RNA sequence: GCUCAUCACCUUCACCUACGGAUCGUCGAGCACGUACCUGCUCGGAGAAGGAGAAAUUC
Numbered sequence: 001g002c003u004c005a006u007c008a009c010c011u012u013c014a015c016c017u018a019c020g021g022a023u024c025g026u027c028g029a030g031c032a033c034g035u036a037c038c039u040g041c042u043c044g045g046a047g048a049a050g051g052a053g054a055a056a057u058u059c
Stems, first nucleotide, its partner, number of pairs: 009051005015045001027044006
The family of this 59-nucleotide RNA sequence is "msiK RNA".
By type it is a cis-regulatory element.
The family has 120 seed sequences and 1,374 matches in Rfam 15.1.
The base pairs follow the family's consensus structure, which is taken from published work.
Rfam's curators put it in the seed alignment.